[Rfam]
RNA sequence: ACAGUACAAACUGAACAGGCGAUGAACCAUAAAUGGUUCGUGGGGCCGGGCCACGAUUGUGGCAGCAGAUGAAGAUAAACAUCUGUGGGACAGUA
Numbered sequence: 001a002c003a004g005u006a007c008a009a010a011c012u013g014a015a016c017a018g019g020c021g022a023u024g025a026a027c028c029a030u031a032a033a034u035g036g037u038u039c040g041u042g043g044g045g046c047c048g049g050g051c052c053a054c055g056a057u058u059g060u061g062g063c064a065g066c067a068g069a070u071g072a073a074g075a076u077a078a079a080c081a082u083c084u085g086u087g088g089g090a091c092a093g094u095a
Base pairs, nucleotide, nucleotide: 010094011093012092013091016089018047019046020045022041023040024039025038026037027036050063051062052061053060054059065086066085067084068083069082070081

Rfam assigns this 95-nucleotide RNA from Acetobacterium woodii to the family "NiCo (Nickel/Cobalt) riboswitch aptamer". The organism belongs to Acetobacterium woodii, within Bacteria. Gene Ontology terms of the family: cobalt ion binding and metal ion homeostasis. For this family Rfam cites "Bacterial riboswitches cooperatively bind Ni(2+) or Co(2+) ions and control expression of heavy metal transporters" (Furukawa et al., Mol Cell, 2015). The family is grouped with related families in Rfam's "NiCo_riboswitches".